The family of this 351-nucleotide RNA from Clostridium sp. MSTE9 is "Bacterial RNase P class A". The base pairs follow the family's consensus structure, which is taken from published work.
[Rfam]
RNA sequence: CGAGCAGGCUGAACAGUCGCGGGUAACGUCCGAAAGGGCCUAUCCGAGGAAAGUCCGAGCUCCACAGGGCAAGAAUAACGGCUAACGGCCGCCGGGGGUGACCCCAGGGAAAGUGCAACAGAGAGAUACCGCCUGCGCUUUGCGCGGGUAAGGCUGGAAAGGCGGGGUAAGAGCCCACCAGCGCGCGGGAGACCGCGCGGCUAUGUAAACCCUAUUCGGAGCAACACCGGAAUGGGACAAAUGCGUCGGCCCGGCGCGUCCCGAACAGGUGGCAUUGAGCUGCGGCGGCAACGCCCGGCCAAGAUAGAUGGCUGUUCACGACAGAACUCGGCUUACAGGCCUGGUCGCACC
Number, nucleotide and partner (000 for none) at each position: 001c347002g346003a345004g000005c343006a342007g341008g340009c339010u338011g336012a316013a315014c314015a313016g312017u311018c310019g000020c046021g045022g044023g043024u042025a041026a000027c000028g000029u000030c000031c000032g000033a000034a000035a000036g000037g000038g000039c000040c000041u025042a024043u023044c022045c021046g020047a000048g000049g000050a000051a334052a333053g332054u000055c331056c330057g329058a328059g327060c221061u220062c219063c218064a000065c000066a000067g000068g252069g251070c000071a000072a000073g217074a216075a215076u214077a213078a000079c091080g090081g089082c088083u000084a000085a000086c000087g000088g082089c081090c080091g079092c000093c107094g105095g104096g103097g102098g000099u000100g000101a000102c097103c096104c095105c094106a000107g093108g212109g211110a000111a000112a000113g210114u209115g206116c205117a204118a000119c000120a000121g000122a000123g000124a000125g000126a000127u000128a000129c153130c152131g149132c148133c147134u146135g145136c144137g143138c142139u000140u000141u000142g138143c137144g136145c135146g134147g133148g132149u131150a000151a000152g130153g129154c000155u000156g000157g000158a000159a000160a000161g179162g178163c000164g176165g175166g174167g000168u000169a000170a000171g000172a000173g000174c166175c165176c164177a000178c162179c161180a000181g201182c199183g198184c197185g196186c195187g194188g193189g000190a000191g000192a000193c188194c187195g186196c185197g184198c183199g182200g000201c181202u000203a000204u117205g116206u115207a000208a000209a114210c113211c109212c108213u077214a076215u075216u074217c073218g063219g062220a061221g060222c000223a000224a000225c271226a270227c269228c268229g000230g000231a000232a000233u000234g262235g261236g260237a259238c258239a000240a000241a000242u000243g257244c256245g255246u254247c253248g000249g000250c000251c069252c068253g247254g246255c245256g244257c243258g238259u237260c236261c235262c234263g000264a000265a000266c000267a000268g228269g227270u226271g225272g000273c000274a000275u000276u000277g000278a000279g299280c298281u297282g296283c000284g295285g294286c293287g292288g000289c000290a000291a000292c287293g286294c285295c284296c282297g281298g280299c279300c000301a000302a000303g000304a000305u000306a000307g000308a000309u000310g018311g017312c016313u015314g014315u013316u012317c000318a000319c000320g000321a000322c000323a000324g000325a000326a000327c059328u058329c057330g056331g055332c053333u052334u051335a000336c011337a000338g010339g009340c008341c007342u006343g005344g000345u003346c002347g001348c000349a000350c000351c000
It is annotated as a ribozyme. Lineage of the source: Bacteria > Bacillati > Clostridia > Clostridiaceae > Clostridium.